[Rfam]
RNA: Small nucleolar RNA SNORA11
Organism: Pipistrellus kuhlii
RNA sequence: GGGGUGUGAUCAGAGCAGGGAGCCCGAGAAUGGCUCCUCUGUUUACAACACAUCCAAUAGGAACGUGGGGUACUCUUCACGGGGGCAGAACACUCUGACCUUCCUGUGACAUGACACCCUAUACAU
Numbered sequence: 001g002g003g004g005u006g007u008g009a010u011c012a013g014a015g016c017a018g019g020g021a022g023c024c025c026g027a028g029a030a031u032g033g034c035u036c037c038u039c040u041g042u043u044u045a046c047a048a049c050a051c052a053u054c055c056a057a058u059a060g061g062a063a064c065g066u067g068g069g070g071u072a073c074u075c076u077u078c079a080c081g082g083g084g085g086c087a088g089a090a091c092a093c094u095c096u097g098a099c100c101u102u103c104c105u106g107u108g109a110c111a112u113g114a115c116a117c118c119c120u121a122u123a124c125a126u
Base pairs, nucleotide, nucleotide: 002055003054004053005052006051007050008049013044014043015042016041017040018039019038020037022034023033024032068119069118070117071116076111080108081107082101083100084099086097087096088095089094